[Rfam]
RNA: Small nucleolar RNA SNORD94
Organism: Acipenser ruthenus
RNA sequence: CUGGCAGUGAUGAUUGGCGCAGGGGUACGGACCUCAGCUGGAUAAUGGGAGCUGAGUGUAAAUGCUCAUUCUCCUGUUCAGUUGGCAUGUGGCCGGCUGGCUGAGAGGCAUUUGCACGAGAAAACCGCCAAGGACUGAGCUAG
Numbered sequence: 001c002u003g004g005c006a007g008u009g010a011u012g013a014u015u016g017g018c019g020c021a022g023g024g025g026u027a028c029g030g031a032c033c034u035c036a037g038c039u040g041g042a043u044a045a046u047g048g049g050a051g052c053u054g055a056g057u058g059u060a061a062a063u064g065c066u067c068a069u070u071c072u073c074c075u076g077u078u079c080a081g082u083u084g085g086c087a088u089g090u091g092g093c094c095g096g097c098u099g100g101c102u103g104a105g106a107g108g109c110a111u112u113u114g115c116a117c118g119a120g121a122a123a124a125c126c127g128c129c130a131a132g133g134a135c136u137g138a139g140c141u142a143g
Stems, first nucleotide, its partner, number of pairs: 001143005